The record is a 77-nucleotide RNA sequence from Desulfobaculum xiamenense, which matches "c-di-GMP-I-GGC riboswitch aptamer" in Rfam.

RNA sequence: GCAGACAACGCCAAACCCGCCGCGAGGCGGGGACGGAAAGCCACGGGCCUCCACAGGAGGCAGCCGGGUUGCCUUCG
Numbered sequence: 001g002c003a004g005a006c007a008a009c010g011c012c013a014a015a016c017c018c019g020c021c022g023c024g025a026g027g028c029g030g031g032g033a034c035g036g037a038a039a040g041c042c043a044c045g046g047g048c049c050u051c052c053a054c055a056g057g058a059g060g061c062a063g064c065c066g067g068g069u070u071g072c073c074u075u076c077g
Base pairs, nucleotide, nucleotide: 003074004073011036012035016031017030018029019028020027021026034063039070040069041068042067044066045065046064047061048060049059
Overview
NCBI's taxonomy places the organism under Bacteria, Pseudomonadati, Thermodesulfobacteriota, Desulfovibrionales, Desulfobaculum.